[Rfam]
RNA sequence: GAGAAAUGCAAAAAGGUAAAUAUACUAUUCAUAAAUACGCCGAGGGAAAUCGAUUUGGCUGUGAUAUAUCGUUUCAGUCGUCAUUUCUUUUGGUUGACGAUCUGAUGGUUGCUCGUCCACAC
Numbered sequence: 001g002a003g004a005a006a007u008g009c010a011a012a013a014a015g016g017u018a019a020a021u022a023u024a025c026u027a028u029u030c031a032u033a034a035a036u037a038c039g040c041c042g043a044g045g046g047a048a049a050u051c052g053a054u055u056u057g058g059c060u061g062u063g064a065u066a067u068a069u070c071g072u073u074u075c076a077g078u079c080g081u082c083a084u085u086u087c088u089u090u091u092g093g094u095u096g097a098c099g100a101u102c103u104g105a106u107g108g109u110u111g112c113u114c115g116u117c118c119a120c121a122c
Stems, first nucleotide, its partner, number of pairs: 001029002006023003057118002060115002063112001068106004077101007085093002